[Rfam]
RNA: Small nucleolar RNA U61
Organism: Cuscuta australis
RNA sequence: GUGCUUUGAUGAAGAAAAUCUUUGUGCUGGAGACAUGUAUUUGUCCUUGAUGGUAUCACAAUCCCUCUAAGAAGUUCUGAGCAC
Numbered sequence: 001g002u003g004c005u006u007u008g009a010u011g012a013a014g015a016a017a018a019u020c021u022u023u024g025u026g027c028u029g030g031a032g033a034c035a036u037g038u039a040u041u042u043g044u045c046c047u048u049g050a051u052g053g054u055a056u057c058a059c060a061a062u063c064c065c066u067c068u069a070a071g072a073a074g075u076u077c078u079g080a081g082c083a084c
Stems, first nucleotide, its partner, number of pairs: 001084004
Dot-bracket structure: ((((............................................................................))))